Shown here is a 151-nucleotide sequence from Halopseudomonas pachastrellae, a member of the family "Group II catalytic intron D1-D4-7".
RNA sequence: CCUUUUGUUCAGCCAAAAGUAGCCUAGGGAUAGUGCGUCACUGGUAACGGUGGGGUGCGAAGCUUCCUGACAAUGUAGUCCCACGAUGUCUGUGGUGUGUGGUCACCGUGAGGUGCCAUGCAAAACCUGCGAGCAACACGCGGGGGCGACG
Numbered sequence: 001c002c003u004u005u006u007g008u009u010c011a012g013c014c015a016a017a018a019g020u021a022g023c024c025u026a027g028g029g030a031u032a033g034u035g036c037g038u039c040a041c042u043g044g045u046a047a048c049g050g051u052g053g054g055g056u057g058c059g060a061a062g063c064u065u066c067c068u069g070a071c072a073a074u075g076u077a078g079u080c081c082c083a084c085g086a087u088g089u090c091u092g093u094g095g096u097g098u099g100u101g102g103u104c105a106c107c108g109u110g111a112g113g114u115g116c117c118a119u120g121c122a123a124a125a126c127c128u129g130c131g132a133g134c135a136a137c138a139c140g141c142g143g144g145g146g147c148g149a150c151g
Stems, first nucleotide, its partner, number of pairs: 002019006027068004033058004038053006082095001096122004106113002126144006
NCBI's taxonomy places the organism under Bacteria, Pseudomonadati, Pseudomonadales, Pseudomonadaceae, Halopseudomonas. From the family's description: Group II introns are found in rRNA, tRNA and mRNA of organelles in fungi, plants and protists, and also in mRNA in bacteria. A search with the family's covariance model found it, with a score of 111 bits.